[Rfam]
Rfam assigns this 158-nucleotide sequence from Zygosaccharomyces rouxii to the family "Small nucleolar RNA snR4".
RNA sequence: AACUAUUACAGUCGAUGAGGAUAGGCUUAAGGUAAUUGAACCUUUCAGUAAUCCAUCUAGAUGAAUCUUUGAUUCUUCAGGAUGGGUCAAUGCGGAUUUCACCGUGGCCUUUUCACCACCUUAUUUCAGCGGUGUUUUAAUAUGACCAACUGAGGCUG
Numbered sequence: 001a002a003c004u005a006u007u008a009c010a011g012u013c014g015a016u017g018a019g020g021a022u023a024g025g026c027u028u029a030a031g032g033u034a035a036u037u038g039a040a041c042c043u044u045u046c047a048g049u050a051a052u053c054c055a056u057c058u059a060g061a062u063g064a065a066u067c068u069u070u071g072a073u074u075c076u077u078c079a080g081g082a083u084g085g086g087u088c089a090a091u092g093c094g095g096a097u098u099u100c101a102c103c104g105u106g107g108c109c110u111u112u113u114c115a116c117c118a119c120c121u122u123a124u125u126u127c128a129g130c131g132g133u134g135u136u137u138u139a140a141u142a143u144g145a146c147c148a149a150c151u152g153a154g155g156c157u158g
Base pairs, nucleotide, nucleotide: 009158010157011156012155013154016115017114018113019112020111021110024109025108026107027106029099030098031097033095041092043090044089051087052086053085054084055083056082057081060078061077063075064074065073066072067071117134118133119132120131

A search with the family's covariance model found it, with a score of 79 bits. The family's RNA type in Rfam is C/D-box small nucleolar RNA. Rfam links the family to the GO terms nucleolus and RNA processing. Taxonomically the source falls in Zygosaccharomyces (Eukaryota, Ascomycota, Saccharomycetes, Saccharomycetaceae). Pairs were carried over by alignment from the consensus structure, which was predicted with CMfinder.